Shown here is a 420-nucleotide sequence from Pannonibacter tanglangensis, a member of the family "Bacterial RNase P class A". Ribonuclease P (RNase P) is a ubiquitous endoribonuclease, found in archaea, bacteria and eukarya as well as chloroplasts and mitochondria. Rfam classes the family as a ribozyme.
Nucleotides: 420
Stems, first nucleotide, its partner, number of pairs: 001416010011405001012362007020048002023045005053403003057400005062244004071297001075240005080094005095109001096107004110235002115233002117229003132175002134171007142163001183201006202224001203222003208217003248319004258310006290303005326345008
Number, partner (000 for none) and nucleotide at each position: 001416u002415c003414a004413g005412u006411c007410g008409g009408c010407c011405g012362g013361a014360c015359g016358g017357c018356c019000g020048c021047u022000g023045c024044c025043g026042c027041g028000a029000g030000a031000g032000c033000c034000g035000a036000a037000a038000g039000g040000c041027u042026g043025c044024g045023g046000g047021g048020g049000a050000g051000g052000a053403a054402a055401g056000u057400c058399c059398g060397g061396g062244c063243u064242c065241c066000a067000u068000g069000g070000a071297g072000a073000c074000a075240c076239g077238g078237u079236g080094c081093c082092g083091g084090g085000u086000a087000a088000c089000a090084c091083c092082c093081g094080g095109c096107g097106g098105g099104g100000g101000c102000g103000a104099c105098c106097c107096c108000a109095g110235g111234g112000a113000c114000a115233g116232u117229g118228c119227c120000a121000c122000a123000g124000a125000a126000a127000g128000c129000a130000a131000a132175c133174c134171g135170c136169c137168c138167g139166u140165g141000c142163u143000g144000c145000c146000u147000c148000g149000c150000u151000c152000c153000g154000g155000c156000g157000a158000g159000g160000g161000c162000c163142a164000c165140c166139a167138c168137g169136g170135g171134u172000a173000a174133g175132g176000g177000u178000g179000a180000a181000a182000g183201g184200g185199u186198g187197g188196g189000g190000u191000a192000a193000g194000a195000g196188c197187c198186c199185a200184c201183c202224g203222c204221g205220c206000g207000a208217c209216c210215g211000g212000u213000a214000a215210c216209g217208g218000a219000a220205g221204c222203g223000g224202c225000a226000c227119g228118g229117u230000a231000a232116a233115c234111c235110c236079c237078a238077c239076c240075g241065g242064g243063a244062g245000c246000a247000a248319a249318a250317c251316c252000g253000a254000a255000u256000a257000g258310g259309g260308a261307u262306g263305g264000c265000a266000c267000a268000g269000g270000g271000u272000c273000c274000c275000g276000c277000a278000a279000g280000g281000g282000a283000g284000c285000c286000g287000g288000g289000u290303u291302g292301g293300u294299u295000u296000c297071c298000a299294g300293g301292c302291c303290g304000g305263c306262c307261a308260u309259c310258c311000g312000g313000g314000u315000a316251g317250g318249u319248u320000g321000c322000g323000c324000g325000a326345g327344g328343c329342g330341u331340c332339u333338g334000g335000c336000a337000a338333c339332a340331g341330g342329c343328g344327u345326c346000c347000c348000a349000g350000a351000u352000g353000a354000a355000u356018g357017g358016c359015c360014g361013u362012c363000g364000c365000g366000u367000g368000g369000a370000c371000c372000g373000g374000u375000c376000a377000a378000a379000c380000g381000g382000u383000c384000u385000g386000c387000c388000u389000u390000a391000c392000a393000g394000a395000a396061c397060c398059c399058g400057g401055c402054u403053u404000a405011c406000a407010g408009g409008c410007c411006g412005a413004c414003u415002g416001a417000c418000a419000c420000u